Shown here is a 69-nucleotide RNA from Rhodonellum psychrophilum, a member of the family "DUF805 RNA". The match comes from Rfam's covariance-model search (83 bits). Pairs were carried over by alignment from the consensus structure, which is taken from published work. The source organism's lineage runs through Bacteria, Pseudomonadati, Bacteroidota, Cytophagia and Rhodonellum psychrophilum.
[Rfam]
Nucleotides: 069
Base pairs, nucleotide, nucleotide: 006023007022008021009020036052037051038050043063044062
Number, partner (000 for none) and nucleotide at each position: 001000a002000a003000a004000a005000a006023g007022u008021g009020g010000a011000g012000a013000c014000c015000a016000g017000a018000g019000c020009c021008c022007a023006c024000u025000u026000u027000a028000a029000a030000a031000a032000a033000c034000g035000g036052g037051g038050u039000g040000a041000u042000a043063c044062u045000g046000a047000a048000a049000a050038a051037c052036c053000u054000u055000a056000c057000g058000a059000g060000u061000a062044g063043g064000a065000a066000a067000a068000a069000a